[Rfam]
RNA: PhotoRC-II RNA
Organism: Palaemonvirus pssm7
Nucleotides: 091
Stems, first nucleotide, its partner, number of pairs: 014036004019031001024049004056077007
Number, partner (000 for none) and nucleotide at each position: 001000a002000g003000a004000c005000a006000a007000c008000u009000u010000u011000c012000c013000u014036u015035c016034c017033c018000u019031u020000a021000c022000c023000a024049a025048g026047a027046c028000u029000u030000a031019a032000c033017g034016g035015g036014g037000u038000u039000a040000u041000a042000a043000u044000u045000a046027g047026u048025c049024u050000u051000c052000a053000u054000a055000u056077c057076c058075a059074c060073u061072a062071g063000u064000g065000a066000a067000g068000g069000g070000a071062u072061u073060a074059g075058u076057g077056g078000a079000a080000a081000u082000a083000u084000u085000a086000u087000a088000u089000c090000g091000c